[Rfam]
RNA sequence: AAGAGCCCAGAGCCAAUAAAAACUGAGAGGAUUGACUCAAGAACAAAU
Number, nucleotide and partner (000 for none) at each position: 001a000002a000003g000004a000005g000006c000007c041008c000009a000010g038011a037012g036013c000014c034015a033016a032017u031018a000019a000020a000021a000022a000023c000024u000025g000026a000027g000028a000029g000030g000031a017032u016033u015034g014035a000036c012037u011038c010039a000040a000041g007042a000043a000044c000045a000046a000047a000048u000
RNA: Plastid-rpl16 group II-D1 intron